[Rfam]
RNA: Wolbachia sRNA 46
RNA sequence: UUUGUUUAAUCCUGAGCUGAUGGUGUCAAAUUUGCAAAUGAACUGAAGCUCAGCAGUUUCUCUUUGAAAUUAAAUUGAAUUUCUCUUUGAAAUUAAAUAAUGCUGAGCUUCAGUUCAUUUGCAAAUUUGACACCAUCAGCUCAGGAUUAA
Numbered sequence: 001u002u003u004g005u006u007u008a009a010u011c012c013u014g015a016g017c018u019g020a021u022g023g024u025g026u027c028a029a030a031u032u033u034g035c036a037a038a039u040g041a042a043c044u045g046a047a048g049c050u051c052a053g054c055a056g057u058u059u060c061u062c063u064u065u066g067a068a069a070u071u072a073a074a075u076u077g078a079a080u081u082u083c084u085c086u087u088u089g090a091a092a093u094u095a096a097a098u099a100a101u102g103c104u105g106a107g108c109u110u111c112a113g114u115u116c117a118u119u120u121g122c123a124a125a126u127u128u129g130a131c132a133c134c135a136u137c138a139g140c141u142c143a144g145g146a147u148u149a150a
Base pairs, nucleotide, nucleotide: 011145012144013143014142015141024132025131026130027129028128029127030126031125032124033123034122035121036120037119038118039117040116041115042114043113044112045111046110047109048108049107050106051105052104053103